[Rfam]
RNA sequence: CGUCGCCAAGGCGAUGAAGCUCGCCUCAACUGCCGCUCCGGCUGAUGGCUUCUAUCGACGA
Numbered sequence: 001c002g003u004c005g006c007c008a009a010g011g012c013g014a015u016g017a018a019g020c021u022c023g024c025c026u027c028a029a030c031u032g033c034c035g036c037u038c039c040g041g042c043u044g045a046u047g048g049c050u051u052c053u054a055u056c057g058a059c060g061a
Stems, first nucleotide, its partner, number of pairs: 010025004016052006032042003